This 161-nucleotide RNA sequence from Phenylobacterium hankyongense belongs to the Rfam family "6S / SsrS RNA". The family's RNA type in Rfam is non-coding RNA gene. A reference for the family is Trotochaud and Wassarman (2005), "A highly conserved 6S RNA structure is required for regulation of transcription", Nat Struct Mol Biol.

RNA sequence: GGUCUGCUGCGGCCCUCGUCGAAGGCGACAUAUUCCAGCGACCUUAAUUCACUCUAAGGGAGCUGUCCCUGCCUGGGAUCGUGGUCCUGGGCACACGGCGCCCACCUGGUUAGCCAGGUCGAGGGAAUGAAACAGUCCUUCACGGCUCUCGCGGCGCCGCC
Numbered sequence: 001g002g003u004c005u006g007c008u009g010c011g012g013c014c015c016u017c018g019u020c021g022a023a024g025g026c027g028a029c030a031u032a033u034u035c036c037a038g039c040g041a042c043c044u045u046a047a048u049u050c051a052c053u054c055u056a057a058g059g060g061a062g063c064u065g066u067c068c069c070u071g072c073c074u075g076g077g078a079u080c081g082u083g084g085u086c087c088u089g090g091g092c093a094c095a096c097g098g099c100g101c102c103c104a105c106c107u108g109g110u111u112a113g114c115c116a117g118g119u120c121g122a123g124g125g126a127a128u129g130a131a132a133c134a135g136u137c138c139u140u141c142a143c144g145g146c147u148c149u150c151g152c153g154g155c156g157c158c159g160c161c
Base pairs, nucleotide, nucleotide: 005156006155007154008153009152010151011150012148015145017144018143019142033127034126035125036124039121040120041119042118043117058103059102060101062099063098064097065096066095071092072091073090074089075088076087077086078085079084
Dot-bracket structure: ....((((((((..(.(((.............((((..(((((..............(((.(((((....(((((((((....)))))))))..))))).))).............)))))..))))..............))))..).))))))).....
It scores 49 bits against the family's covariance model.